This 90-nucleotide RNA from Streptomyces radiopugnans belongs to the Rfam family "che1 RNA". The match comes from Rfam's covariance-model search (96 bits). The family's consensus secondary structure is taken from published work. The organism belongs to Streptomyces, within Bacteria.
[Rfam]
RNA sequence: CGGACAGGGGGGUCUCUGCCCAGGGGCAGGGCCUGUCCGGCAAGUCGCGCGAGAGCGCGGCCAGUGGUUGUCGCUCGGGGGUGAUCGCCG
Numbered sequence: 001c002g003g004a005c006a007g008g009g010g011g012g013u014c015u016c017u018g019c020c021c022a023g024g025g026g027c028a029g030g031g032c033c034u035g036u037c038c039g040g041c042a043a044g045u046c047g048c049g050c051g052a053g054a055g056c057g058c059g060g061c062c063a064g065u066g067g068u069u070g071u072c073g074c075u076c077g078g079g080g081g082u083g084a085u086c087g088c089c090g
Stems, first nucleotide, its partner, number of pairs: 001039008014031007044061007
By type it is a small RNA.